[Rfam]
Shown here is a 75-nucleotide RNA sequence from Prunus armeniaca, a member of the family "Small nucleolar RNA Z155".
RNA sequence: CAUUGACGUGAUGAUAUGUUUUUCGGAAUAUAUAGUGUCGACUUAAAAUAACAGACUACAAUUAUCUGAUCAAUG
Numbered sequence: 001c002a003u004u005g006a007c008g009u010g011a012u013g014a015u016a017u018g019u020u021u022u023u024c025g026g027a028a029u030a031u032a033u034a035g036u037g038u039c040g041a042c043u044u045a046a047a048a049u050a051a052c053a054g055a056c057u058a059c060a061a062u063u064a065u066c067u068g069a070u071c072a073a074u075g
Stems, first nucleotide, its partner, number of pairs: 001075006
The organism belongs to Prunus, within Eukaryota. The match comes from Rfam's covariance-model search (55 bits). Rfam links the family to the GO terms nucleolus and RNA processing. The family's RNA type in Rfam is C/D-box small nucleolar RNA. Pairs were carried over by alignment from the consensus structure.